[Rfam]
Overview
A member of the RNA family "c-di-AMP riboswitch aptamer (ydaO/yuaA leader)" from Pelotomaculum isophthalicicum, 204 nucleotides long. It scores 85 bits against the family's covariance model.
RNA sequence: AAAUACAAGCAGCCGAAUCCCAAAAAAUCAGGGUACGGGGGAACCGGUUUAUGGGGUGAAUCCCGGUAAAGUCAUUAGCUAAGACCCAGGCACCGGUAUUAUUGUAUAAUAAUGCCAUGUCCUUUAUCUUGUGACUCGAAUGGGUAGGGUUUUGUCUUUUACCGAACCCGUCAGCUAACCCCGGAGGCUCAAAAGAAAGGAGUA
Numbered sequence: 001a002a003a004u005a006c007a008a009g010c011a012g013c014c015g016a017a018u019c020c021c022a023a024a025a026a027a028u029c030a031g032g033g034u035a036c037g038g039g040g041g042a043a044c045c046g047g048u049u050u051a052u053g054g055g056g057u058g059a060a061u062c063c064c065g066g067u068a069a070a071g072u073c074a075u076u077a078g079c080u081a082a083g084a085c086c087c088a089g090g091c092a093c094c095g096g097u098a099u100u101a102u103u104g105u106a107u108a109a110u111a112a113u114g115c116c117a118u119g120u121c122c123u124u125u126a127u128c129u130u131g132u133g134a135c136u137c138g139a140a141u142g143g144g145u146a147g148g149g150u151u152u153u154g155u156c157u158u159u160u161a162c163c164g165a166a167c168c169c170g171u172c173a174g175c176u177a178a179c180c181c182c183g184g185a186g187g188c189u190c191a192a193a194a195g196a197a198a199g200g201a202g203u204a
Base pairs, nucleotide, nucleotide: 011189012188013187014186019033020032036183037182038181039180040179045053046052054169055168056167062144063143064142065141147163148162150161